[Rfam]
RNA: Small nucleolar RNA SNORA44
RNA sequence: CAGCGUGUUUCCAAGGGCCUUGGCUGGCUGUGGCCAUGGGAUCUCCAGCUGUAGACCAGAGUAACUGGAGAACUUGGACAGCCCAGGUCAGCACAGUGCCUGCAGCUGCCACUUAGCUUUCCUAUAAUG
Number, nucleotide and partner (000 for none) at each position: 001c000002a000003g000004c000005g000006u000007g000008u000009u000010u000011c039012c038013a000014a000015g000016g035017g034018c033019c032020u000021u030022g029023g000024c000025u000026g000027g000028c000029u022030g021031u000032g019033g018034c017035c016036a000037u000038g012039g011040g000041a000042u000043c000044u000045c000046c000047a000048g000049c000050u000051g000052u000053a000054g000055a000056c000057c000058a000059g000060a000061g000062u000063a000064a000065c000066u000067g122068g121069a120070g119071a118072a000073c000074u000075u000076g000077g000078a000079c000080a000081g109082c108083c000084c102085a101086g100087g099088u000089c000090a000091g000092c000093a000094c000095a000096g000097u000098g000099c087100c086101u085102g084103c000104a000105g000106c000107u000108g082109c081110c000111a000112c000113u000114u000115a000116g000117c000118u071119u070120u069121c068122c067123u000124a000125u000126a000127a000128u000129g000